mir-231 microRNA precursor family: a 71-nucleotide sequence from Caenorhabditis japonica. Its family is annotated with miRNA-mediated post-transcriptional gene silencing and RISC complex in the Gene Ontology. The match comes from Rfam's covariance-model search (74 bits). The base pairs follow the family's consensus structure, which was predicted with RNAalifold. The source organism's lineage runs through Eukaryota, Bilateria, Rhabditoidea, Peloderinae and Caenorhabditis. A reference for the family is de Wit et al. (2009), "Repertoire and evolution of miRNA genes in four divergent nematode species", Genome Res.

RNA sequence: UGUGGUUCUGACUGUUUCAGUAGCUUAUAGCCGUGGGCGUAUAAGCUCGUGAUCAACAGGCAGGACCACUU
Numbered sequence: 001u002g003u004g005g006u007u008c009u010g011a012c013u014g015u016u017u018c019a020g021u022a023g024c025u026u027a028u029a030g031c032c033g034u035g036g037g038c039g040u041a042u043a044a045g046c047u048c049g050u051g052a053u054c055a056a057c058a059g060g061c062a063g064g065a066c067c068a069c070u071u
Stems, first nucleotide, its partner, number of pairs: 002069009012059005017052003022047008031039001